[Rfam]
RNA sequence: AUCAUAAUAGGCAAUGAUGUCUGCCUCGAACCGCCUUGGAGCUGAUGACGUCUAGUAUACU
Numbered sequence: 001a002u003c004a005u006a007a008u009a010g011g012c013a014a015u016g017a018u019g020u021c022u023g024c025c026u027c028g029a030a031c032c033g034c035c036u037u038g039g040a041g042c043u044g045a046u047g048a049c050g051u052c053u054a055g056u057a058u059a060c061u
Stems, first nucleotide, its partner, number of pairs: 010025004016052006033042002
The record is a 61-nucleotide RNA from Myroides odoratus, which matches "Fluoride riboswitch aptamer (crcB RNA motif)" in Rfam.
A search with the family's covariance model found it, with a score of 43 bits.
Lineage of the source: Bacteria > Bacteroidota > Flavobacteriia > Flavobacteriaceae > Myroides.
The base pairs follow the family's consensus structure, which is taken from published work.